RNA sequence: GCAAUAGUCAGUCAGGGAAACUCAAGGGUGGUCGGCAUUACCCCAAGUUAGAAAGGGGGUGAUGCAAGUGAUGACGACAUUUCAAACUUUAGUGCUAAUGAUCUCAUUCGCUGGUUUGAUUGUGUCCAUCCUAAUCGUAUUUAGACAGAAAAUAACCCACCCUUGAGCUUGACCGGCGAUAUGGUGGGUUAUCCUAUACAUUUAGCCGCCCCCCUUGAAGGGACCUGCGACUAUUGCUUGACUAAGUGGUGUUGAUGCACCGCUUA
Numbered sequence: 001g002c003a004a005u006a007g008u009c010a011g012u013c014a015g016g017g018a019a020a021c022u023c024a025a026g027g028g029u030g031g032u033c034g035g036c037a038u039u040a041c042c043c044c045a046a047g048u049u050a051g052a053a054a055g056g057g058g059g060u061g062a063u064g065c066a067a068g069u070g071a072u073g074a075c076g077a078c079a080u081u082u083c084a085a086a087c088u089u090u091a092g093u094g095c096u097a098a099u100g101a102u103c104u105c106a107u108u109c110g111c112u113g114g115u116u117u118g119a120u121u122g123u124g125u126c127c128a129u130c131c132u133a134a135u136c137g138u139a140u141u142u143a144g145a146c147a148g149a150a151a152a153u154a155a156c157c158c159a160c161c162c163u164u165g166a167g168c169u170u171g172a173c174c175g176g177c178g179a180u181a182u183g184g185u186g187g188g189u190u191a192u193c194c195u196a197u198a199c200a201u202u203u204a205g206c207c208g209c210c211c212c213c214c215u216u217g218a219a220g221g222g223a224c225c226u227g228c229g230a231c232u233a234u235u236g237c238u239u240g241a242c243u244a245a246g247u248g249g250u251g252u253u254g255a256u257g258c259a260c261c262g263c264u265u266a
Base pairs, nucleotide, nucleotide: 001237002236003235004234005233007231008230009229016207017206021167022166023165024164025163026162027161028160030157031156032155038061041059042058043057044056074138075137076136077135079132087100110130112128113127211222212221213220243266244265245264246263247262248261249260250259251258252257
RNA: BsrG